[Rfam]
RNA sequence: UUGGUGGAUUUGGAGACUUCAACUUGUAGACUUGACAAACUUGACGACAUCAACUUGCAGACUUUGCUGAUUUAAAGACUUCAACU
Numbered sequence: 001u002u003g004g005u006g007g008a009u010u011u012g013g014a015g016a017c018u019u020c021a022a023c024u025u026g027u028a029g030a031c032u033u034g035a036c037a038a039a040c041u042u043g044a045c046g047a048c049a050u051c052a053a054c055u056u057g058c059a060g061a062c063u064u065u066g067c068u069g070a071u072u073u074a075a076a077g078a079c080u081u082c083a084a085c086u
Stems, first nucleotide, its partner, number of pairs: 001084004006079001009076006019066001021064001025059004032053004

A member of the RNA family "MIR8024 microRNA precursor family" from Capsicum baccatum, 86 nucleotides long. Gene Ontology terms of the family: miRNA-mediated post-transcriptional gene silencing and RISC complex. The family's consensus secondary structure was predicted with RNAalifold.